RNA sequence: AUCUUUGCGCUUGGGGCAAUGACGCAGCUAGUGAGGUAAAACCGAGGCGCGUCAAUUGCUGGUUGAAAACUAUUUCCAAACCCCCUCAUCGGCCUGGGUUCAGCCUUGGCCUUUGAGAAUUUCUGGAAGGGAUCCCUCAAAAAGGGUAACCC
Numbered sequence: 001a002u003c004u005u006u007g008c009g010c011u012u013g014g015g016g017c018a019a020u021g022a023c024g025c026a027g028c029u030a031g032u033g034a035g036g037u038a039a040a041a042c043c044g045a046g047g048c049g050c051g052u053c054a055a056u057u058g059c060u061g062g063u064u065g066a067a068a069a070c071u072a073u074u075u076c077c078a079a080a081c082c083c084c085c086u087c088a089u090c091g092g093c094c095u096g097g098g099u100u101c102a103g104c105c106u107u108g109g110c111c112u113u114u115g116a117g118a119a120u121u122u123c124u125g126g127a128a129g130g131g132a133u134c135c136c137u138c139a140a141a142a143a144g145g146g147u148a149a150c151c152c
Base pairs, nucleotide, nucleotide: 021053022052023051024050025049027048028047029046035043036042037041085117086116087115088114091111092110093109094108096105097104130152131151133149

Rfam assigns this 152-nucleotide sequence from Amborella trichopoda to the family "U4 spliceosomal RNA". The source organism's lineage runs through Eukaryota, Viridiplantae, Euphyllophyta, Amborellaceae and Amborella. By type it is a spliceosomal small nuclear RNA. Clan: U4 clan. The base pairs follow the family's consensus structure, which is taken from published work. Rfam describes the family as follows. U4 small nuclear RNA (U4 snRNA) is a component of the major U2-dependent spliceosome.